[Rfam]
RNA sequence: UCGUCAGGCUCAGUCCCCUCCCGAUAAACCUCUAAAUAGGGAUCUUCCCCGGGGGAGACCUCGACUU
Numbered sequence: 001u002c003g004u005c006a007g008g009c010u011c012a013g014u015c016c017c018c019u020c021c022c023g024a025u026a027a028a029c030c031u032c033u034a035a036a037u038a039g040g041g042a043u044c045u046u047c048c049c050c051g052g053g054g055g056a057g058a059c060c061u062c063g064a065c066u067u
Stems, first nucleotide, its partner, number of pairs: 003065003007061002010058002014055005023047002026045001030041004
This 67-nucleotide RNA sequence from Crocuta crocuta belongs to the Rfam family "mir-484 microRNA precursor family". The base pairs follow the family's consensus structure, which was predicted with RNAalifold. It scores 80 bits against the family's covariance model. On this family, see Lui et al., Cancer Res 2007: "Patterns of known and novel small RNAs in human cervical cancer". Taxonomically the source falls in Crocuta (Eukaryota, Vertebrata, Boreoeutheria, Laurasiatheria).